[Rfam]
RNA sequence: AGCUGCAUUGCUGGGCAAGUUGUCCUUUGGCAGAUGUUGCAAUUCGAUCAACAUCGGUACGUGCUACUGCCUGCCAAAGGAAAUUUGCCCCGGAAUUCAUCU
Numbered sequence: 001a002g003c004u005g006c007a008u009u010g011c012u013g014g015g016c017a018a019g020u021u022g023u024c025c026u027u028u029g030g031c032a033g034a035u036g037u038u039g040c041a042a043u044u045c046g047a048u049c050a051a052c053a054u055c056g057g058u059a060c061g062u063g064c065u066a067c068u069g070c071c072u073g074c075c076a077a078a079g080g081a082a083a084u085u086u087g088c089c090c091c092g093g094a095a096u097u098c099a100u101c102u
Stems, first nucleotide, its partner, number of pairs: 005098001007096003011092001013090007023081003028076006035069002
RNA: mir-399 microRNA precursor family